[Rfam]
RNA sequence: UAUUAGGUCGGUGCAAAAAUCAUUGCGGUUUUUGCUUUUGAAAGUAAUGGCAAAAACCGCAAUGACUUUUGCACUGACCUAAUA
Dot-bracket structure: ((((((((((((((((((.(((((((((((((((((.(((....))).))))))))))))))))).))))))))))))))))))